Shown here is a 326-nucleotide RNA from Chryseobacterium sp. Leaf404, a member of the family "Bacterial RNase P class A".
RNA sequence: CGAGAAAACCGGCCUGUUGAUUCUCAUUUUUUUGAGGGUAGGAAAGUCCGGACACCAUAGGGCAGCAAAGCGGAUAACAUCCGUCAUCUGUGAAGAUAGGACCAGUGCAACAGAAAGUAUGUACAGUUCGGCUGUAGUGAAACCAGGUAAACUCUUUGCGGUGCAAUGGUAAGUAUAUCGGUGCUUUUCAGAAAUGAAAAUAGGGGCGGCCCGUCCUGAAAACCGAGGGGUCAUCAGCUCAAGUUUUGCAGCAAUGUACAACGUAGAUAAAUAACAGGCGUCCCGUUUUCGGGAUACAGAAUCCGGCUUACAGGUUUUCUCGUGGU
Numbered sequence: 001c002g003a004g005a006a007a008a009c010c011g012g013c014c015u016g017u018u019g020a021u022u023c024u025c026a027u028u029u030u031u032u033u034g035a036g037g038g039u040a041g042g043a044a045a046g047u048c049c050g051g052a053c054a055c056c057a058u059a060g061g062g063c064a065g066c067a068a069a070g071c072g073g074a075u076a077a078c079a080u081c082c083g084u085c086a087u088c089u090g091u092g093a094a095g096a097u098a099g100g101a102c103c104a105g106u107g108c109a110a111c112a113g114a115a116a117g118u119a120u121g122u123a124c125a126g127u128u129c130g131g132c133u134g135u136a137g138u139g140a141a142a143c144c145a146g147g148u149a150a151a152c153u154c155u156u157u158g159c160g161g162u163g164c165a166a167u168g169g170u171a172a173g174u175a176u177a178u179c180g181g182u183g184c185u186u187u188u189c190a191g192a193a194a195u196g197a198a199a200a201u202a203g204g205g206g207c208g209g210c211c212c213g214u215c216c217u218g219a220a221a222a223c224c225g226a227g228g229g230g231u232c233a234u235c236a237g238c239u240c241a242a243g244u245u246u247u248g249c250a251g252c253a254a255u256g257u258a259c260a261a262c263g264u265a266g267a268u269a270a271a272u273a274a275c276a277g278g279c280g281u282c283c284c285g286u287u288u289u290c291g292g293g294a295u296a297c298a299g300a301a302u303c304c305g306g307c308u309u310a311c312a313g314g315u316u317u318u319c320u321c322g323u324g325g326u
Base pairs, nucleotide, nucleotide: 001322002321003320004319005318006317007316008315009314010313011311012279013278014277015276016275017274018273020039021038022037023036024035025034026033044309045308046307048306049305050304051303052302053163054162055161056160060212061211062210063209065159066158067157068156069155070084071083072082073081074080085099086097087096088095089094100154101153105152106151107148108147122136123135124134125133126132127131167236168235169234170233178226179225180224181223182222203217204216205215206214207213243262244261245260247258248257249256250255
For this family Rfam cites "Ribonuclease P: unity and diversity in a tRNA processing ribozyme" (Frank and Pace, Annu Rev Biochem, 1998).
It is annotated as a ribozyme.
The match comes from Rfam's covariance-model search (199 bits).